RNA sequence: AUGUGACUUAGUUAGGGGGCAAAUAUUAAUUGAAAUCUAAUGUUAAUUAGGUUUCUUUCAAAGAUAGGCCUAUUGAAUGGACAAUCUGUUUUUUACUUUCAGAUGUCCCUCAAGCAGCCUUUCACAUUC
Numbered sequence: 001a002u003g004u005g006a007c008u009u010a011g012u013u014a015g016g017g018g019g020c021a022a023a024u025a026u027u028a029a030u031u032g033a034a035a036u037c038u039a040a041u042g043u044u045a046a047u048u049a050g051g052u053u054u055c056u057u058u059c060a061a062a063g064a065u066a067g068g069c070c071u072a073u074u075g076a077a078u079g080g081a082c083a084a085u086c087u088g089u090u091u092u093u094u095a096c097u098u099u100c101a102g103a104u105g106u107c108c109c110u111c112a113a114g115c116a117g118c119c120u121u122u123c124a125c126a127u128u129c
Stems, first nucleotide, its partner, number of pairs: 004021002007018003034054002037051002063123002066120004073113003077110001079108005085102001
RNA: Small nucleolar RNA U19